[Rfam]
RNA sequence: AGGGCUUGGGAAAUGGCUGCUGUGUGGUCGGAGCCAGGUGGUUCCAGCCUCGUACCAGCCGGCCUCACCCGUGCCCGAGAUUAAUUCCCACGCAGACUCCGGGCUGGAGUUCGUCCUAUGCAGUAACAGGUGUGAGCAUUCAUGGAGCGUUUUGAUGGUCAUGUAUGAUACUGCAUACAACA
Numbered sequence: 001a002g003g004g005c006u007u008g009g010g011a012a013a014u015g016g017c018u019g020c021u022g023u024g025u026g027g028u029c030g031g032a033g034c035c036a037g038g039u040g041g042u043u044c045c046a047g048c049c050u051c052g053u054a055c056c057a058g059c060c061g062g063c064c065u066c067a068c069c070c071g072u073g074c075c076c077g078a079g080a081u082u083a084a085u086u087c088c089c090a091c092g093c094a095g096a097c098u099c100c101g102g103g104c105u106g107g108a109g110u111u112c113g114u115c116c117u118a119u120g121c122a123g124u125a126a127c128a129g130g131u132g133u134g135a136g137c138a139u140u141c142a143u144g145g146a147g148c149g150u151u152u153u154g155a156u157g158g159u160c161a162u163g164u165a166u167g168a169u170a171c172u173g174c175a176u177a178c179a180a181c182a
Stems, first nucleotide, its partner, number of pairs: 003075003008070003015064004019059004024055002026049003030045001032043003088107002091103001093101001117177009127167002133161003137157004144151002

Shown here is a 182-nucleotide RNA sequence from Apteryx owenii, a member of the family "Small Cajal body specific RNA 16". From the family's description: scaRNAs are a specific class of small nuclear RNAs which localise to the Cajal bodies and guide the modification of RNA polymerase II transcribed spliceosomal RNAs U1, U2, U4, U5 and U12. ACA47 belongs to the H/ACA box class of guide RNAs as it has the predicted hairpin-hinge-hairpin-tail structure, the conserved H/ACA-box motifs and is found associated with GAR1. ACA47 is predicted to guide the pseudouridylation of residue U5 of the U1 spliceosomal snRNA. The source organism's lineage runs through Eukaryota, Gnathostomata, Euteleostomi, Sauria and Apteryx. The family's consensus secondary structure was predicted with RNAfold.